[Rfam]
RNA sequence: AUAAUCUGGGGAUCUUGUUAAAAUGCAGAUUUUUAUACAUUAGGUCUAGGAUGCAGCCUGAAAUUCUGCAUUUCUAAGAAGCUCCCAAGUGAUGCUGA
Numbered sequence: 001a002u003a004a005u006c007u008g009g010g011g012a013u014c015u016u017g018u019u020a021a022a023a024u025g026c027a028g029a030u031u032u033u034u035a036u037a038c039a040u041u042a043g044g045u046c047u048a049g050g051a052u053g054c055a056g057c058c059u060g061a062a063a064u065u066c067u068g069c070a071u072u073u074c075u076a077a078g079a080a081g082c083u084c085c086c087a088a089g090u091g092a093u094g095c096u097g098a
Base pairs, nucleotide, nucleotide: 004090005089009085010084011083014081015080016079018077019076020075021073022072023071025069026068027067028066029065031063032062033061034060035059